Rfam assigns this 239-nucleotide RNA sequence from Paraliobacillus quinghaiensis to the family "Group II catalytic intron D1-D4-6". Group II introns are found in rRNA, tRNA and mRNA of organelles in fungi, plants and protists, and also in mRNA in bacteria. A reference for the family is Bonen and Vogel (2001), "The ins and outs of group II introns", Trends Genet.
RNA sequence: UGAUUCCCGUCAAGUAAGAACUAACCAUUCACUUGUAGCGAGUCUUGGAGGGCAGAUGGUAACAUACUGCCUUUAAGCGUAGACAGCUAGGUAAUGGGCCGAAAACCAAAUGGUUGAAGGGAUAGAGCUUCGAAAAGUGCCCAAAACUGGGAAGGUCGAUGUGUUCUGAGACACAGAAGACAAUAUUAUUCUUCUCGUAUAUGGUGAGAGAAGGAUAACUUCCCCGGAGUCGAAGACCU
Numbered sequence: 001u002g003a004u005u006c007c008c009g010u011c012a013a014g015u016a017a018g019a020a021c022u023a024a025c026c027a028u029u030c031a032c033u034u035g036u037a038g039c040g041a042g043u044c045u046u047g048g049a050g051g052g053c054a055g056a057u058g059g060u061a062a063c064a065u066a067c068u069g070c071c072u073u074u075a076a077g078c079g080u081a082g083a084c085a086g087c088u089a090g091g092u093a094a095u096g097g098g099c100c101g102a103a104a105a106c107c108a109a110a111u112g113g114u115u116g117a118a119g120g121g122a123u124a125g126a127g128c129u130u131c132g133a134a135a136a137g138u139g140c141c142c143a144a145a146a147c148u149g150g151g152a153a154g155g156u157c158g159a160u161g162u163g164u165u166c167u168g169a170g171a172c173a174c175a176g177a178a179g180a181c182a183a184u185a186u187u188a189u190u191c192u193u194c195u196c197g198u199a200u201a202u203g204g205u206g207a208g209a210g211a212a213g214g215a216u217a218a219c220u221u222c223c224c225c226g227g228a229g230u231c232g233a234a235g236a237c238c239u
Stems, first nucleotide, its partner, number of pairs: 011035004018030003022207001024205002038087002042084004046079002048074008056065003125231001127230006149224006155181003160175004186218011
Dot-bracket structure: ..........((((...(((.[.[[..))).))))..((..(((((((((((((((((....))).))))))))...)).)))).)).....................................(.((((((................(((((((((..((((........))))...)))....(((((((((((.......]].]))))))))))))))))))))))))........